Rfam assigns this 590-nucleotide part of an RNA from Desulfovibrio lacusfryxellense to the family "Bacterial small subunit ribosomal RNA". For this family Rfam cites "Crystal structure of the ribosome at 5.5 A resolution" (Yusupov et al., Science, 2001).

[Rfam]
RNA sequence: UGACGGGGGCCCGCACAAGCGGUGGAGUAUGUGGUUUAAUUCGAUGCAACGCGAAGAACCUUACCUGGACUUGACAUCCUGAGAAUCCUUUAGAAAUAAGGGAGUGCCCUUCGGGGAAUUCAGUGACAGGUGCUGCAUGGCUGUCGUCAGCUCGUGCCGUGAGGUGUUGGGUUAAGUCCCGCAACGAGCGCAACCCCUAUUGUUAGUUGCCAUCACAUAAUGGUGGGCACUCUAAUGAGACUGCCCGGGUCAACCGGGAGGAAGGUGGGGACGACGUCAAGUCAUCAUGGCCCUUACGUCCAGGGCUACACACGUACUACAAUGGUGGAUACAGAGGGUCGCGAAGCCGCGAGGUGAAGCCAAUCCCAGAAAAUCCAUCCCAGUCCGGAUCGGAGUCUGCAACUCGACUCCGUGAAGUUGGAAUCGCUAGUAAUCCCGGAUCAGCAUGCCGGGGUGAAUACGUUUCCCGGGCUUUGUACACACCGCCCGUCACACCCCGAAAGCUGGUUUCUGCCCAAAAUCGACGGACUAACCUUCGGGAGGUAGUCGCCUACGGUAGGGCUGGUGAUUGGGGUGAAGUCGUAACAAGG
Numbered sequence: 001u002g003a004c005g006g007g008g009g010c011c012c013g014c015a016c017a018a019g020c021g022g023u024g025g026a027g028u029a030u031g032u033g034g035u036u037u038a039a040u041u042c043g044a045u046g047c048a049a050c051g052c053g054a055a056g057a058a059c060c061u062u063a064c065c066u067g068g069a070c071u072u073g074a075c076a077u078c079c080u081g082a083g084a085a086u087c088c089u090u091u092a093g094a095a096a097u098a099a100g101g102g103a104g105u106g107c108c109c110u111u112c113g114g115g116g117a118a119u120u121c122a123g124u125g126a127c128a129g130g131u132g133c134u135g136c137a138u139g140g141c142u143g144u145c146g147u148c149a150g151c152u153c154g155u156g157c158c159g160u161g162a163g164g165u166g167u168u169g170g171g172u173u174a175a176g177u178c179c180c181g182c183a184a185c186g187a188g189c190g191c192a193a194c195c196c197c198u199a200u201u202g203u204u205a206g207u208u209g210c211c212a213u214c215a216c217a218u219a220a221u222g223g224u225g226g227g228c229a230c231u232c233u234a235a236u237g238a239g240a241c242u243g244c245c246c247g248g249g250u251c252a253a254c255c256g257g258g259a260g261g262a263a264g265g266u267g268g269g270g271a272c273g274a275c276g277u278c279a280a281g282u283c284a285u286c287a288u289g290g291c292c293c294u295u296a297c298g299u300c301c302a303g304g305g306c307u308a309c310a311c312a313c314g315u316a317c318u319a320c321a322a323u324g325g326u327g328g329a330u331a332c333a334g335a336g337g338g339u340c341g342c343g344a345a346g347c348c349g350c351g352a353g354g355u356g357a358a359g360c361c362a363a364u365c366c367c368a369g370a371a372a373a374u375c376c377a378u379c380c381c382a383g384u385c386c387g388g389a390u391c392g393g394a395g396u397c398u399g400c401a402a403c404u405c406g407a408c409u410c411c412g413u414g415a416a417g418u419u420g421g422a423a424u425c426g427c428u429a430g431u432a433a434u435c436c437c438g439g440a441u442c443a444g445c446a447u448g449c450c451g452g453g454g455u456g457a458a459u460a461c462g463u464u465u466c467c468c469g470g471g472c473u474u475u476g477u478a479c480a481c482a483c484c485g486c487c488c489g490u491c492a493c494a495c496c497c498c499g500a501a502a503g504c505u506g507g508u509u510u511c512u513g514c515c516c517a518a519a520a521u522c523g524a525c526g527g528a529c530u531a532a533c534c535u536u537c538g539g540g541a542g543g544u545a546g547u548c549g550c551c552u553a554c555g556g557u558a559g560g561g562c563u564g565g566u567g568a569u570u571g572g573g574g575u576g577a578a579g580u581c582g583u584a585a586c587a588a589g590g
Stems, first nucleotide, its partner, number of pairs: 001480002003477003007474007015463002019427005024320001026318008034309002040055004064304007077126002079123005086103007105118001107116002129293002132291004138287002140282003143278001145276002150189006156165003168181004195270004200238007210227002214225003241261002244258005324379007336367003341360002346355003386417001391412007433455007483589001485586001488582002493576008503566006510560006522549004528544003533540002
Notes: The base pairs follow the family's consensus structure, which is taken from published work. The sequence is in the family's curated seed alignment.